This 71-nucleotide sequence from Bubo bubo belongs to the Rfam family "tRNA". The source organism's lineage runs through Eukaryota, Dipnotetrapodomorpha, Sauria, Telluraves and Bubo.
[Rfam]
RNA sequence: UAGGAAAUAAUAUAAGGGGAGUAUGGAGGGUUUUGAUCCCUUCUGUGUAGGUUCGAUUCCUGCUUUUCUAA
Numbered sequence: 001u002a003g004g005a006a007a008u009a010a011u012a013u014a015a016g017g018g019g020a021g022u023a024u025g026g027a028g029g030g031u032u033u034u035g036a037u038c039c040c041u042u043c044u045g046u047g048u049a050g051g052u053u054c055g056a057u058u059c060c061u062g063c064u065u066u067u068c069u070a071a
Stems, first nucleotide, its partner, number of pairs: 001070007010024004026042005047063005